Shown here is a 370-nucleotide RNA sequence from Paenirhizobium daejeonense, a member of the family "Alphaproteobacteria transfer-messenger RNA".
Rfam's curators write: Bacterial tmRNA, also known as 10Sa RNA or SsrA, is named for its dual tRNA and mRNA-like properties. Its role is to liberate the mRNA from a stalled ribosome. To accomplish this part of the tmRNA is used as a reading frame that ends in a translation stop signal.
[Rfam]
RNA sequence: CCCCUUUUCAACGGAACCGGAAACACCUAUAUCACUCCUGCCGGCCUUCGGGCCGGCUAUGGCGAUAAACGGUCGGUGUAAUAAACCUAUUGGACCCGGGGGCGGUACCCGGCGCCUCCACCAAAAACCGGUCGGUCCUUGAUGACCGGCUUUUGAUGGGGGCGAAAUAGGAUCGACAAGGGUGUAAAGAUCGAACUUUUGCUCGGCAUGAUACCGCCGUUAUCGGGUCACAAGUGUAGUUGCAAACGACAACAACGCUAAGGGUUAUGCUCUCGCUGCCUAAUGGCGGUGCGGGAAACCCACUCUAAAGCCCUCUAGGUUAGCCCCUUGAGGCGGGGUCCGAAGGCACCUGGCAACAGAAGCCUUCACC
Number, nucleotide and partner (000 for none) at each position: 001c000002c000003c000004c000005u000006u000007u000008u000009c000010a000011a000012c000013g000014g000015a000016a000017c000018c000019g000020g000021a000022a000023a000024c000025a000026c000027c000028u000029a000030u000031a000032u000033c000034a000035c000036u000037c000038c000039u000040g057041c056042c055043g054044g053045c052046c051047u000048u000049c000050g000051g046052g045053c044054c043055g042056g041057c040058u000059a000060u000061g203062g202063c201064g200065a199066u000067a000068a000069a000070c000071g196072g000073u194074c193075g192076g191077u190078g000079u000080a000081a000082u000083a000084a000085a000086c182087c181088u180089a000090u179091u178092g177093g000094a000095c000096c112097c111098g110099g109100g108101g000102g000103c000104g000105g000106u000107a000108c100109c099110c098111g097112g096113c164114g163115c162116c161117u160118c159119c158120a000121c000122c000123a000124a000125a000126a000127a000128c000129c000130g000131g000132u000133c000134g000135g000136u000137c000138c000139u000140u000141g000142a000143u000144g000145a000146c000147c000148g000149g000150c000151u000152u000153u000154u000155g000156a000157u000158g119159g118160g117161g116162g115163c114164g113165a000166a000167a000168u000169a000170g000171g000172a000173u000174c000175g000176a000177c092178a091179a090180g088181g087182g086183u000184g000185u000186a000187a000188a000189g000190a077191u076192c075193g074194a073195a000196c071197u000198u000199u065200u064201g063202c062203u061204c219205g218206g217207c216208a000209u230210g229211a228212u000213a000214c226215c225216g207217c206218c205219g204220u000221u000222a000223u000224c000225g215226g214227g000228u211229c210230a209231c000232a000233a000234g000235u000236g000237u000238a000239g000240u000241u000242g000243c000244a000245a000246a000247c000248g000249a000250c000251a000252a000253c000254a000255a000256c000257g000258c000259u000260a000261a000262g000263g000264g000265u000266u000267a000268u000269g000270c000271u000272c000273u000274c000275g000276c000277u000278g000279c000280c000281u000282a000283a000284u000285g000286g000287c000288g000289g000290u000291g000292c000293g000294g000295g000296a000297a000298a000299c000300c000301c000302a000303c000304u000305c000306u000307a000308a000309a000310g000311c000312c000313c000314u000315c000316u000317a000318g000319g000320u000321u000322a000323g000324c000325c000326c000327c000328u000329u000330g000331a000332g000333g000334c000335g000336g351337g350338g349339u348340c000341c000342g367343a366344a365345g364346g363347c362348a339349c338350c337351u336352g000353g000354c000355a000356a000357c000358a000359g000360a000361a000362g347363c346364c345365u344366u343367c342368a000369c000370c000
The source organism's lineage runs through Bacteria, Pseudomonadati, Pseudomonadota, Hyphomicrobiales and Paenirhizobium.
A search with the family's covariance model found it, with a score of 310 bits.